[Rfam]
RNA sequence: AACACGCUCCUUAGAUCCACCUCUGGGGAGUUCCUCCGCUCCGGUUCUGUUGUGUCCUCUCUCUGGGAUCAGCAGGAUCGGUCCCGAGGCUCCCAGCAGCUUCACGGCUGUACAGUUGGAGGUGCUUGAGUCAUUGGCGUGUGAGAUCAGUCUACCUGCUCACCCAGAAUCCUCUCUGCCCUGAUCCUUCACAGGAAAACCCCAGGGCAGAACAGCUGGAGAGCAGACAAC
Number, nucleotide and partner (000 for none) at each position: 001a000002a142003c141004a140005c139006g138007c137008u136009c000010c130011u129012u128013a127014g126015a000016u000017c000018c124019a123020c122021c121022u120023c119024u118025g117026g094027g093028g092029a091030g090031u000032u000033c000034c000035u087036c086037c000038g084039c000040u000041c081042c080043g079044g000045u000046u076047c075048u074049g073050u000051u000052g070053u000054g069055u068056c067057c066058u000059c000060u000061c000062u000063c000064u000065g000066g057067g056068a055069u054070c052071a000072g000073c049074a048075g047076g046077a000078u000079c043080g042081g041082u000083c000084c038085c000086g036087a035088g000089g000090c030091u029092c028093c027094c026095a000096g111097c110098a109099g108100c107101u106102u000103c000104a000105c000106g101107g100108c099109u098110g097111u096112a000113c000114a000115g000116u000117u025118g024119g023120a022121g021122g020123u019124g018125c000126u014127u013128g012129a011130g010131u000132c000133a000134u000135u000136g008137g007138c006139g005140u004141g003142u002143g000144a000145g000146a000147u000148c000149a000150g000151u000152c000153u000154a000155c000156c226157u225158g224159c223160u222161c000162a000163c219164c000165c000166a217167g216168a000169a000170u000171c000172c000173u000174c000175u211176c210177u209178g208179c207180c206181c205182u204183g202184a000185u197186c000187c195188u000189u000190c000191a000192c000193a000194g000195g187196a000197a185198a000199a000200c000201c000202c183203c000204a182205g181206g180207g179208c178209a177210g176211a175212a000213c000214a000215g000216c167217u166218g000219g163220a000221g000222a160223g159224c158225a157226g156227a000228c000229a000230a000231c000
Notes:
Shown here is a 231-nucleotide RNA sequence from Carassius auratus, a member of the family "Small nucleolar RNA SNORA53". The base pairs follow the family's consensus structure, which was predicted with RNAalifold. The match comes from Rfam's covariance-model search (102 bits). The organism belongs to Carassius, within Eukaryota. About the family: The snoRNA ACA53 belongs to the H/ACA family of pseudouridylation guide snoRNAs. By type it is an H/ACA-box small nucleolar RNA.